[Rfam]
RNA sequence: CGUGUGGUGUCCGGCGUUAGGGCUGGAAUGGCGACACGGCCUUAUUAGAGGU
Numbered sequence: 001c002g003u004g005u006g007g008u009g010u011c012c013g014g015c016g017u018u019a020g021g022g023c024u025g026g027a028a029u030g031g032c033g034a035c036a037c038g039g040c041c042u043u044a045u046u047a048g049a050g051g052u
Base pairs, nucleotide, nucleotide: 001038002037003036004035005034007032008031010027011026012025013024014023015022

Shown here is a 52-nucleotide RNA from Providencia alcalifaciens, a member of the family "L31-Gammaproteobacteria ribosomal protein leader". The family is grouped with related families in Rfam's "Ribosomal Protein L31 Leader clan". The sequence is in the family's curated seed alignment.